[Rfam]
RNA: Vibrio RNA AS9
Organism: Desulfuromonas soudanensis
RNA sequence: UCGGCCCGCUCCUCGGUCAGGGAAAUACAGAUCAGGCCCCGUCCUUCCCGGGCCAUGAAAUUGAUCGCUUCCGGGGUGACCAGCUCGGCGGCCAUGGUCA
Number, nucleotide and partner (000 for none) at each position: 001u000002c000003g054004g053005c052006c051007c050008g049009c000010u023011c022012c021013u020014c000015g000016g000017u000018c000019a000020g013021g012022g011023a010024a000025a000026u000027a000028c000029a000030g000031a046032u000033c000034a000035g043036g042037c041038c000039c000040c000041g037042u036043c035044c000045u000046u031047c000048c000049c008050g007051g006052g005053c004054c003055a000056u000057g000058a000059a000060a000061u000062u100063g099064a098065u097066c096067g092068c091069u000070u000071c088072c087073g086074g084075g000076g000077u000078g000079a000080c000081c000082a000083g000084c074085u000086c073087g072088g071089c000090g000091g068092c067093c000094a000095u000096g066097g065098u064099c063100a062